[Rfam]
RNA sequence: CUCUGAAUCCGCCUGUUGAUUCAGGGCAGAAAGAG
Numbered sequence: 001c002u003c004u005g006a007a008u009c010c011g012c013c014u015g016u017u018g019a020u021u022c023a024g025g026g027c028a029g030a031a032a033g034a035g
Base pairs, nucleotide, nucleotide: 001026002025003024004023005022006021007020008019